[Rfam]
This 74-nucleotide RNA from Cephalopterus ornatus belongs to the Rfam family "tRNA". The organism belongs to Cephalopterus, within Eukaryota. By type it is a transfer RNA.

RNA sequence: GAUUAAUUAGCUCAGAUGGUUAGAGUGCGGUGCUAAUAACACCAAGGUUGUGGGUUCAAUUCCCACAUGGGUCA
Numbered sequence: 001g002a003u004u005a006a007u008u009a010g011c012u013c014a015g016a017u018g019g020u021u022a023g024a025g026u027g028c029g030g031u032g033c034u035a036a037u038a039a040c041a042c043c044a045a046g047g048u049u050g051u052g053g054g055u056u057c058a059a060u061u062c063c064c065a066c067a068u069g070g071g072u073c074a
Stems, first nucleotide, its partner, number of pairs: 001073004006068002010026004029043004050066005